[Rfam]
RNA sequence: GAAGUUGGAUCUCCAAGUUUUUGGAAUGCUCUGAAUUC
Numbered sequence: 001g002a003a004g005u006u007g008g009a010u011c012u013c014c015a016a017g018u019u020u021u022u023g024g025a026a027u028g029c030u031c032u033g034a035a036u037u038c
Stems, first nucleotide, its partner, number of pairs: 003018001005016004020035006
Shown here is a 38-nucleotide sequence from Gossypium mustelinum, a member of the family "Plastid psbT antisense RNA". On this family, see Richter et al., Plant Commun 2023: "Retrograde signaling in plants: A critical review focusing on the GUN pathway and beyond". Rfam 15.1 lists 1,866 matches to the family in 287 species. The match comes from Rfam's covariance-model search (52 bits). About the family: Plastid-psbT-asRNA is an antisense RNA (asRNA) motif reported in Plastids It has been shown that psbT expression is controlled by two antisense RNAs originated from psbN transcription by the nuclear-encoded polymerase (NEP), in which the short antisense RNA hybridizes to psbT CDS, thereby stabilizing psbT transcript while blocking its translation during photooxidative stress.